RNA: Archaeal signal recognition particle RNA
RNA sequence: GGGUUGGGUAGGGUGGGGAGACUCGCCAUCUCCUAUUCCCGCAUGGCGUAAAGCGGGCACCAGUAACUUCCUCCCUAUGGCAAGUAAUAGUCUAGGUCCAGGCUGUACAAUGAAAGCCGCCCAAUAGGGCUAACGUCUAUGGACUUCCUCUUCGGAGGGAGAGGAUGUUCCAUACUUACCGGGUGAAUCGGUCAGGUCCGGAAGGGAGCAGCCGUAGCCGGGCGUUAGCGCUUAUUGGUCACCGGCUUAAGGUAAGUCUGGGUUAAAGCCUAGACUAUUAACUACCAUGGAGAGGAAGAUCCAACCC
Dot-bracket structure: (((((((((..((((((((((.......))))))...(((((..........))))))))).....(((((((.(((((.....((((((((((((((((((((...(.....((((((.(((((((((((.(((..(((((((.((((((((....)))))))).)).)))))....(((.((....((((....(((....)))....))))..))))).)).)))).))))))))....))))))..)...))))))))......)))))))))))).....))))).))))))))))))))))